Rfam assigns this 344-nucleotide sequence from Aequorivita ciconiae to the family "Bacterial RNase P class A".
RNA sequence: AGCGCAGGCCGCCUUAUCGUUCCCGAAUUUAAUUCGGGAGAGGAAAGUCCGGACACCAUAGGGAUGCAUAGCGGCUAACGGCCGUCACCCUCCAUAGCCUCGGCUCGGGAGGGGAGGACAAGUGCAACAGAAAGGAUGUACAGGUAAUGCUGUAGUGAAAUCAGGUAAACUCUAUGCGGUGAAAUGCCACGUAAACCUGUGUCCCGAUAGCUAUCGGGAAAGGGUUCCCGCCCGAUGCAGGAGGGUAGGCAGAUUGAGCGUUUCGGUAACGGAACGUCUAGAUAAAUGAUAAGGCCCCGAACUAGCUUCGGGGACAGAACCCGGCUUAUAGGCCUGCAUUUUUU
Numbered sequence: 001a002g003c004g005c006a007g008g009c010c011g012c013c014u015u016a017u018c019g020u021u022c023c024c025g026a027a028u029u030u031a032a033u034u035c036g037g038g039a040g041a042g043g044a045a046a047g048u049c050c051g052g053a054c055a056c057c058a059u060a061g062g063g064a065u066g067c068a069u070a071g072c073g074g075c076u077a078a079c080g081g082c083c084g085u086c087a088c089c090c091u092c093c094a095u096a097g098c099c100u101c102g103g104c105u106c107g108g109g110a111g112g113g114g115a116g117g118a119c120a121a122g123u124g125c126a127a128c129a130g131a132a133a134g135g136a137u138g139u140a141c142a143g144g145u146a147a148u149g150c151u152g153u154a155g156u157g158a159a160a161u162c163a164g165g166u167a168a169a170c171u172c173u174a175u176g177c178g179g180u181g182a183a184a185u186g187c188c189a190c191g192u193a194a195a196c197c198u199g200u201g202u203c204c205c206g207a208u209a210g211c212u213a214u215c216g217g218g219a220a221a222g223g224g225u226u227c228c229c230g231c232c233c234g235a236u237g238c239a240g241g242a243g244g245g246u247a248g249g250c251a252g253a254u255u256g257a258g259c260g261u262u263u264c265g266g267u268a269a270c271g272g273a274a275c276g277u278c279u280a281g282a283u284a285a286a287u288g289a290u291a292a293g294g295c296c297c298c299g300a301a302c303u304a305g306c307u308u309c310g311g312g313g314a315c316a317g318a319a320c321c322c323g324g325c326u327u328a329u330a331g332g333c334c335u336g337c338a339u340u341u342u343u344u
Base pairs, nucleotide, nucleotide: 001340002339004337005336006335007334008333009332010331011329012294013293014292015291016290017289018288020040021039022038023037024036025035026034027033028032045327046326047325049324050323051322052321054181055180056179057178061229062228063227064226066177067176068175069174070173071085072084073083074082075081086116088113089112090111091110092109093108117172118171122170123169124166125165185251186250187249188248196241197240198239199238200237222233223232224231258277259276260275261274262273263272264271265270